[Rfam]
RNA sequence: GCCGGGCUUAGCAACGCAAGCCUGUGACCCAAGUGGGGGCAUUACGGUGAUGGGACGUGGGCUCGGCCCAAAGAGCAGGGCCCAAUGGUGCCAAUUUCUGGCCUGCCCUAUCCAAGCAGGGAGUUGGGCCACAGAGCCCGGGCGAAGGCCUGGGUUUCGUGGCCCUUAGAGUAGAGGGCAACGCGUCAGGCUGGCCUCACAGAGCAGCGAAUACCUCUCGCUCUUGGCGGUGGAAGGAUUACGGGCCGGUGCAACUACGGCCCAAUAAACGCUCUGACUGGUUGAACACUAUCGGACCAUCACCUUU
Numbered sequence: 001g002c003c004g005g006g007c008u009u010a011g012c013a014a015c016g017c018a019a020g021c022c023u024g025u026g027a028c029c030c031a032a033g034u035g036g037g038g039g040c041a042u043u044a045c046g047g048u049g050a051u052g053g054g055a056c057g058u059g060g061g062c063u064c065g066g067c068c069c070a071a072a073g074a075g076c077a078g079g080g081c082c083c084a085a086u087g088g089u090g091c092c093a094a095u096u097u098c099u100g101g102c103c104u105g106c107c108c109u110a111u112c113c114a115a116g117c118a119g120g121g122a123g124u125u126g127g128g129c130c131a132c133a134g135a136g137c138c139c140g141g142g143c144g145a146a147g148g149c150c151u152g153g154g155u156u157u158c159g160u161g162g163c164c165c166u167u168a169g170a171g172u173a174g175a176g177g178g179c180a181a182c183g184c185g186u187c188a189g190g191c192u193g194g195c196c197u198c199a200c201a202g203a204g205c206a207g208c209g210a211a212u213a214c215c216u217c218u219c220g221c222u223c224u225u226g227g228c229g230g231u232g233g234a235a236g237g238a239u240u241a242c243g244g245g246c247c248g249g250u251g252c253a254a255c256u257a258c259g260g261c262c263c264a265a266u267a268a269a270c271g272c273u274c275u276g277a278c279u280g281g282u283u284g285a286a287c288a289c290u291a292u293c294g295g296a297c298c299a300u301c302a303c304c305u306u307u
Stems, first nucleotide, its partner, number of pairs: 001040003004023006028037003044306001046304008056294002058291003061287001063285004068281003072275005078263005085256001087255001089253002092251002098249008107237002111234004116228002119225006126165007134157010166171001173218005184209003191202003
Notes: Rfam assigns this 307-nucleotide RNA sequence from Rhododendron williamsianum to the family "Plant signal recognition particle RNA". It scores 243 bits against the family's covariance model. The family's consensus secondary structure is taken from published work.